[Rfam]
c-di-AMP riboswitch aptamer (ydaO/yuaA leader): a 161-nucleotide RNA from Streptomyces lavendofoliae. The pairing is the family consensus, mapped onto this sequence. The match comes from Rfam's covariance-model search (64 bits). This family represents a conserved RNA structure found upstream of the ydaO and yuaA genes in Bacillus subtilis and related genes in other bacteria.
RNA sequence: UCGGAAUUCGCACCCACUCACGCGUGGCAGGAGCGGGGGACCCAGGUAAGUCGCCGUCCCGGAAUUCCGGGACGGCUCGGGGUGAAGUCGCGUCACGACGCGGCCGGGCAACUCCAGUCCGAACCCGACAGCUCACCUCGCAGGCGCCGGAGAGGAAACAG
Dot-bracket structure: ..........(.((...((...........))((((((....(...................................)(((.....((((........))))..((((.......))))...))).........)))))).)).)...............